The family of this 143-nucleotide RNA sequence is "RT-14 RNA".
RNA sequence: CUCUAAUACACAUUUGAGAUGAUAUAUUUUACGGAAUAUAUCCAGUAAAAGUAUUAGUAUUAAAGAGAUUUAUUCCUUCCGCAAAGGUAAAAAUGUAUCAGUAAAAUAUAUAUUAGUAAAAAUUUUGAAUAUAGGUAUUUUAU
Numbered sequence: 001c002u003c004u005a006a007u008a009c010a011c012a013u014u015u016g017a018g019a020u021g022a023u024a025u026a027u028u029u030u031a032c033g034g035a036a037u038a039u040a041u042c043c044a045g046u047a048a049a050a051g052u053a054u055u056a057g058u059a060u061u062a063a064a065g066a067g068a069u070u071u072a073u074u075c076c077u078u079c080c081g082c083a084a085a086g087g088u089a090a091a092a093a094u095g096u097a098u099c100a101g102u103a104a105a106a107u108a109u110a111u112a113u114u115a116g117u118a119a120a121a122a123u124u125u126u127g128a129a130u131a132u133a134g135g136u137a138u139u140u141u142a143u
Stems, first nucleotide, its partner, number of pairs: 003057007014048002021042009079087002101143009111133003119126002